The family of this 188-nucleotide sequence from Oryza meyeriana is "Early nodulin 40". It is annotated as a non-coding RNA gene. Lineage of the source: Eukaryota > Viridiplantae > Streptophytina > Tracheophyta > Oryza meyeriana.
[Rfam]
RNA sequence: AUGGAAGAUGAAUGGCUUGAACAUGCACAUGGUUCUUGAGAGCAGAAGGAGGAUGAAGAGCAAUGGCUGAGCUCCAGCUCAAGAAGCUCUUCUCCAUGGUGCCUUUCCUGGCCUCCUAGGUGGUUGGCUGAGGUAUGCACAAACUGGCAAGUCACAAAACGGCAAUGGUGAACUCCAGCAGGAGUCCA
Numbered sequence: 001a002u003g004g005a006a007g008a009u010g011a012a013u014g015g016c017u018u019g020a021a022c023a024u025g026c027a028c029a030u031g032g033u034u035c036u037u038g039a040g041a042g043c044a045g046a047a048g049g050a051g052g053a054u055g056a057a058g059a060g061c062a063a064u065g066g067c068u069g070a071g072c073u074c075c076a077g078c079u080c081a082a083g084a085a086g087c088u089c090u091u092c093u094c095c096a097u098g099g100u101g102c103c104u105u106u107c108c109u110g111g112c113c114u115c116c117u118a119g120g121u122g123g124u125u126g127g128c129u130g131a132g133g134u135a136u137g138c139a140c141a142a143a144c145u146g147g148c149a150a151g152u153c154a155c156a157a158a159a160c161g162g163c164a165a166u167g168g169u170g171a172a173c174u175c176c177a178g179c180a181g182g183a184g185u186c187c188a
Stems, first nucleotide, its partner, number of pairs: 059073003086144001088142001091139001102137001104135001172185004